[Rfam]
RNA sequence: UUCAUUUUUGUAUUAAUACUCACGCUUAAUCGUCACGUUUGGUAGGGUGUCGGCGCCAUGAGCGUCCGGUUGCUAAACGGGGUUAGCGGAGGCCCAAC
Numbered sequence: 001u002u003c004a005u006u007u008u009u010g011u012a013u014u015a016a017u018a019c020u021c022a023c024g025c026u027u028a029a030u031c032g033u034c035a036c037g038u039u040u041g042g043u044a045g046g047g048u049g050u051c052g053g054c055g056c057c058a059u060g061a062g063c064g065u066c067c068g069g070u071u072g073c074u075a076a077a078c079g080g081g082g083u084u085a086g087c088g089g090a091g092g093c094c095c096a097a098c
Stems, first nucleotide, its partner, number of pairs: 023088004028084004036079009049070005